[Rfam]
RNA sequence: AGCACCUGUGUCUUUUUUGUCUAACUUAUGGAUAAAGACUUAUAGAUAGGUGAAAAAAAUAAAUCUUUUUUUCCAACCCAGAGCUCAUUGUUCAGCAUAAGUUUUGAUGCACAUAAGAAGAAAUGUU
Dot-bracket structure: ..(((((((.(..(((((((....(....).))))))).....).)))))))..........((.((.((((......(((((((.((........)).)))))))........)))).)).))...
Numbered sequence: 001a002g003c004a005c006c007u008g009u010g011u012c013u014u015u016u017u018u019g020u021c022u023a024a025c026u027u028a029u030g031g032a033u034a035a036a037g038a039c040u041u042a043u044a045g046a047u048a049g050g051u052g053a054a055a056a057a058a059a060u061a062a063a064u065c066u067u068u069u070u071u072u073c074c075a076a077c078c079c080a081g082a083g084c085u086c087a088u089u090g091u092u093c094a095g096c097a098u099a100a101g102u103u104u105u106g107a108u109g110c111a112c113a114u115a116a117g118a119a120g121a122a123a124u125g126u127u
Stems, first nucleotide, its partner, number of pairs: 003052007011044001014038007025030001063124002066121002069118004079106007087098002